Shown here is a 436-nucleotide part of an RNA from Leptospira interrogans, a member of the family "Bacterial large subunit ribosomal RNA". The family's consensus secondary structure is taken from published work. The sequence is in the family's curated seed alignment. Lineage of the source: Bacteria > Leptospiria > Leptospiraceae > Leptospira > Leptospira interrogans serovar Copenhageni.
[Rfam]
RNA sequence: CUCUCCGAAAUAGGUUUAGGCCUAGCGUCAGUUGUUUAGUUGCGGGGGUAGAGCUCUGAAAGGACUAGGGGGCCCACAAGCUUACCAAACCCUAUCAAACUUCGAAUACCGUAACUCCAAAGACUGGCAGUCAGACUACGGGGGAUAAGCUCCGUGGUCAAAAGGGAAACAGCCCAGACCGUCGUUUAAGGCCCCAAAGUUCAUGCUAAGUGGCAAAGGAUGUGGGGGCGCAUAUACAACCAGGAGGUUGGCUUAGAAGCAGCCACCCUUUAAAGAGUGCGUAAUAGCUCACUGGUCGAGUGCUCCCGCGCCGAAAAUGUAAUCGGGACUAAGCAUGGCGCCGAAGGCACGGAUUCCGUAAGGAGUGGUAGGAGAGCGUUCUUUCUUCCGUUGAAGGCGUACCGUAAGGAGCGCUGGAGGAGUAAGAAGUGAAGAU
Numbered sequence: 001c002u003c004u005c006c007g008a009a010a011u012a013g014g015u016u017u018a019g020g021c022c023u024a025g026c027g028u029c030a031g032u033u034g035u036u037u038a039g040u041u042g043c044g045g046g047g048g049u050a051g052a053g054c055u056c057u058g059a060a061a062g063g064a065c066u067a068g069g070g071g072g073c074c075c076a077c078a079a080g081c082u083u084a085c086c087a088a089a090c091c092c093u094a095u096c097a098a099a100c101u102u103c104g105a106a107u108a109c110c111g112u113a114a115c116u117c118c119a120a121a122g123a124c125u126g127g128c129a130g131u132c133a134g135a136c137u138a139c140g141g142g143g144g145a146u147a148a149g150c151u152c153c154g155u156g157g158u159c160a161a162a163a164g165g166g167a168a169a170c171a172g173c174c175c176a177g178a179c180c181g182u183c184g185u186u187u188a189a190g191g192c193c194c195c196a197a198a199g200u201u202c203a204u205g206c207u208a209a210g211u212g213g214c215a216a217a218g219g220a221u222g223u224g225g226g227g228g229c230g231c232a233u234a235u236a237c238a239a240c241c242a243g244g245a246g247g248u249u250g251g252c253u254u255a256g257a258a259g260c261a262g263c264c265a266c267c268c269u270u271u272a273a274a275g276a277g278u279g280c281g282u283a284a285u286a287g288c289u290c291a292c293u294g295g296u297c298g299a300g301u302g303c304u305c306c307c308g309c310g311c312c313g314a315a316a317a318u319g320u321a322a323u324c325g326g327g328a329c330u331a332a333g334c335a336u337g338g339c340g341c342c343g344a345a346g347g348c349a350c351g352g353a354u355u356c357c358g359u360a361a362g363g364a365g366u367g368g369u370a371g372g373a374g375a376g377c378g379u380u381c382u383u384u385c386u387u388c389c390g391u392u393g394a395a396g397g398c399g400u401a402c403c404g405u406a407a408g409g410a411g412c413g414c415u416g417g418a419g420g421a422g423u424a425a426g427a428a429g430u431g432a433a434g435a436u
Stems, first nucleotide, its partner, number of pairs: 001376006011024005026130001027128007036121001038116008051103001052101002057097003061093003068086002070083004134159010164175003179352004184348003190342003199339001201338006218312002222309010239296005245269003250264003270274001275290001279288002353366005377431001379428005385422001387421003396415005402409002